The record is a 231-nucleotide RNA from Roseibium aggregatum, which matches "permuted transfer-messenger RNA" in Rfam. It scores 144 bits against the family's covariance model. The base pairs follow the family's consensus structure, which is taken from published work. It is annotated as a non-coding RNA gene.
RNA sequence: GGCAAUAAAUGGUCAGUGCAAUAAACCUAUCGGACCCGGGGGCGGUACCCGGCGCCUCCACCCAAGCCCAUGGGGCUAAGCUAUGGAAACUCCAUGGGUUUCGGCGGGGGCGAAAUAGGAUCGACGAGGGCGUAAAGACUGUGCUUUUGCUCGGCAUUGUACCACCGUUAUCGGGCUUUCUUAAUAGUUGCAAAUGACAACUAUGCUAUGGACAACGCUGUCGCAGCGUAA
Numbered sequence: 001g002g003c004a005a006u007a008a009a010u011g012g013u014c015a016g017u018g019c020a021a022u023a024a025a026c027c028u029a030u031c032g033g034a035c036c037c038g039g040g041g042g043c044g045g046u047a048c049c050c051g052g053c054g055c056c057u058c059c060a061c062c063c064a065a066g067c068c069c070a071u072g073g074g075g076c077u078a079a080g081c082u083a084u085g086g087a088a089a090c091u092c093c094a095u096g097g098g099u100u101u102c103g104g105c106g107g108g109g110g111c112g113a114a115a116u117a118g119g120a121u122c123g124a125c126g127a128g129g130g131c132g133u134a135a136a137g138a139c140u141g142u143g144c145u146u147u148u149g150c151u152c153g154g155c156a157u158u159g160u161a162c163c164a165c166c167g168u169u170a171u172c173g174g175g176c177u178u179u180c181u182u183a184a185u186a187g188u189u190g191c192a193a194a195u196g197a198c199a200a201c202u203a204u205g206c207u208a209u210g211g212a213c214a215a216c217g218c219u220g221u222c223g224c225a226g227c228g229u230a231a
Base pairs, nucleotide, nucleotide: 001151002150003149004148005147014141015140016139017138026130027129028128030127031126032125036052037051038050039049040048053112054111055110056109057108058107059106152167153166154165